[Rfam]
RNA sequence: CUCCAAUGAUACAAUUUUAUAAUUUAAAAAAUAUUUUACUUUCCCAGUCAUGGAAAAUCAUCUUCUUGUUAUUGACAAAGCUACCAUCAUUCAAUUGGUAUCAGAUUCUGACAUGGACAAGUAACAUUC
Dot-bracket structure: .((((.((.........((((.(......).))...))..........))))))............((((.(((.((...((...((((......))))...)).........))..)))..))))...
Numbered sequence: 001c002u003c004c005a006a007u008g009a010u011a012c013a014a015u016u017u018u019a020u021a022a023u024u025u026a027a028a029a030a031a032u033a034u035u036u037u038a039c040u041u042u043c044c045c046a047g048u049c050a051u052g053g054a055a056a057a058u059c060a061u062c063u064u065c066u067u068g069u070u071a072u073u074g075a076c077a078a079a080g081c082u083a084c085c086a087u088c089a090u091u092c093a094a095u096u097g098g099u100a101u102c103a104g105a106u107u108c109u110g111a112c113a114u115g116g117a118c119a120a121g122u123a124a125c126a127u128u129c
Stems, first nucleotide, its partner, number of pairs: 002054004007050002018038002020033002023030001067126004072120003076115002081104002086099004
The family of this 129-nucleotide RNA from Peromyscus maniculatus is "Small nucleolar RNA SNORA24". Gene Ontology terms of the family: nucleolus and RNA processing. It is annotated as an H/ACA-box small nucleolar RNA. The match comes from Rfam's covariance-model search (62 bits). From the family's description: ACA24 is a member of the H/ACA class of snoRNA that guide the sites of modification of uridines to pseudouridines. Taxonomically the source falls in Peromyscus maniculatus (Eukaryota, Metazoa, Tetrapoda, Rodentia).